[Rfam]
Rfam assigns this 160-nucleotide RNA from Candidatus Mycosynbacter amalyticus to the family "lysM-TM7 RNA". A search with the family's covariance model found it, with a score of 107 bits. The family's RNA type in Rfam is cis-regulatory element. NCBI's taxonomy places the organism under Bacteria, Bacteria candidate phyla, Candidatus Saccharimonadota, Candidatus Mycosynbacter.
RNA sequence: GCCUGCCAGAACUGUCGUACGGGUACGGGAGCACAUGCUCUUAUUGCGCACUUUACACACAAUAUCACUUAAUAUUUGGUCGACAAGUGCCCUGUUCUAACUAUUGCGAGAAGAAAGACAAAGUAUGGUAGAAGCGUUCACAGUAAUGUGAUCGCAGGAG
Numbered sequence: 001g002c003c004u005g006c007c008a009g010a011a012c013u014g015u016c017g018u019a020c021g022g023g024u025a026c027g028g029g030a031g032c033a034c035a036u037g038c039u040c041u042u043a044u045u046g047c048g049c050a051c052u053u054u055a056c057a058c059a060c061a062a063u064a065u066c067a068c069u070u071a072a073u074a075u076u077u078g079g080u081c082g083a084c085a086a087g088u089g090c091c092c093u094g095u096u097c098u099a100a101c102u103a104u105u106g107c108g109a110g111a112a113g114a115a116a117g118a119c120a121a122a123g124u125a126u127g128g129u130a131g132a133a134g135c136g137u138u139c140a141c142a143g144u145a146a147u148g149u150g151a152u153c154g155c156a157g158g159a160g
Stems, first nucleotide, its partner, number of pairs: 003131006013120004021092006095112004134155003138151005